[Rfam]
Description:
The record is a 365-nucleotide part of an RNA from Actinopolymorpha singaporensis, which matches "Bacterial large subunit ribosomal RNA" in Rfam.
RNA sequence: CGGGCGAACCGUGGUUAAGGAACUCGGCAAAAUGCCCCCGUAACUUCGGGAGAAGGGGGACCGGAUCCGUGAGGGGACUUGCUCCCUGCAGCGGUGAAGGUCGCAGAGACCAGGCCCAAGCGACUGUUUACUAAAAACACAGGUCCGUGCGAAGUCGCAAGACGAUGUAUACGGACUGACGCCUGCCCGGUGCUGGAACGUUAAGGGGACCGGUUAGAUCCUUCGGGGUCGAAGCUGAGAACUUAAGCGCCAGUAAACGGCGGUGGUAACUAUAACCAUCCUAAGGUAGCGAAAUUCCUUGUCGGGUAAGUUCCGACCUGCACGAAUGGCGUAACGACUUGGGCGCUGUCUCAACCACGGACCCG
Numbered sequence: 001c002g003g004g005c006g007a008a009c010c011g012u013g014g015u016u017a018a019g020g021a022a023c024u025c026g027g028c029a030a031a032a033u034g035c036c037c038c039c040g041u042a043a044c045u046u047c048g049g050g051a052g053a054a055g056g057g058g059g060a061c062c063g064g065a066u067c068c069g070u071g072a073g074g075g076g077a078c079u080u081g082c083u084c085c086c087u088g089c090a091g092c093g094g095u096g097a098a099g100g101u102c103g104c105a106g107a108g109a110c111c112a113g114g115c116c117c118a119a120g121c122g123a124c125u126g127u128u129u130a131c132u133a134a135a136a137a138c139a140c141a142g143g144u145c146c147g148u149g150c151g152a153a154g155u156c157g158c159a160a161g162a163c164g165a166u167g168u169a170u171a172c173g174g175a176c177u178g179a180c181g182c183c184u185g186c187c188c189g190g191u192g193c194u195g196g197a198a199c200g201u202u203a204a205g206g207g208g209a210c211c212g213g214u215u216a217g218a219u220c221c222u223u224c225g226g227g228g229u230c231g232a233a234g235c236u237g238a239g240a241a242c243u244u245a246a247g248c249g250c251c252a253g254u255a256a257a258c259g260g261c262g263g264u265g266g267u268a269a270c271u272a273u274a275a276c277c278a279u280c281c282u283a284a285g286g287u288a289g290c291g292a293a294a295u296u297c298c299u300u301g302u303c304g305g306g307u308a309a310g311u312u313c314c315g316a317c318c319u320g321c322a323c324g325a326a327u328g329g330c331g332u333a334a335c336g337a338c339u340u341g342g343g344c345g346c347u348g349u350c351u352c353a354a355c356c357a358c359g360g361a362c363c364c365g
Base pairs, nucleotide, nucleotide: 001365002364003363004362009360010359011358012357013356014355015354016353018351019350020349035059036058037057038056039055044049060101061100062099072087073086074085075084076083102106114344115343116342117341118340119339120338121336122335125139126138127137142177143176144175145174146173147172148171149170150167154163155162156161180331181330182329183328185261186260187259190258191257192254193253194252195251196250199249200248201247205243206242211237212236213235214234217230218229219228220227221226262280263279264278265277266276267275281285291318301317302316303315304314305313306312